[Rfam]
Nucleotides: 107
Stems, first nucleotide, its partner, number of pairs: 002106007013043005021032003026078004044070004049066002051062004074099001079096006
Number, partner (000 for none) and nucleotide at each position: 001000u002106u003105g004104u005103u006102a007101u008100c009000a010000c011000g012000a013043a014042a015041g016040c017039g018000g019000g020000a021032g022031g023030g024000a025000a026078u027077a028076g029075a030023c031022c032021c033000a034000a035000c036000g037000a038000a039017c040016g041015c042014u043013u044070a045069g046068c047067a048000a049066c050065c051062c052061u053060a054059c055000u056000c057000u058000u059054g060053u061052a062051g063000a064000a065050g066049g067047u068046g069045c070044u071000a072000c073000a074099u075029u076028c077027u078026a079096u080095u081094c082093u083092g084091a085000u086000g087000c088000a089000a090000a091084u092083c093082g094081g095080a096079a097000a098000c099074a100008g101007a102006u103005a104004a105003c106002g107000u
SAM riboswitch aptamer (S box leader): a 107-nucleotide RNA sequence from Flavobacterium sediminis. The family's consensus secondary structure is taken from published work. It scores 75 bits against the family's covariance model. The SAM riboswitch is found upstream of a number of genes which code for proteins involved in methionine or cysteine biosynthesis in Gram-positive bacteria. The SAM riboswitch acts at the level of transcription termination control. The predicted structure consists of a complex stem-loop region followed by a single stem loop terminator region. NCBI's taxonomy places the organism under Bacteria, Pseudomonadati, Flavobacteriia, Flavobacteriales, Flavobacterium.